[Rfam]
RNA sequence: GGACAACACUCUGGAGAACAAUGGAAGGGAUUGUACCGAAGAAGUAACUUACCUGCCAUACACGCGAAGACUGGUAAGCAAUCUUUCAGGUGAAAGGACAGAGGCAGAUAA
Numbered sequence: 001g002g003a004c005a006a007c008a009c010u011c012u013g014g015a016g017a018a019c020a021a022u023g024g025a026a027g028g029g030a031u032u033g034u035a036c037c038g039a040a041g042a043a044g045u046a047a048c049u050u051a052c053c054u055g056c057c058a059u060a061c062a063c064g065c066g067a068a069g070a071c072u073g074g075u076a077a078g079c080a081a082u083c084u085u086u087c088a089g090g091u092g093a094a095a096g097g098a099c100a101g102a103g104g105c106a107g108a109u110a111a
Stems, first nucleotide, its partner, number of pairs: 009103005019033004035091003038087002042085003048078006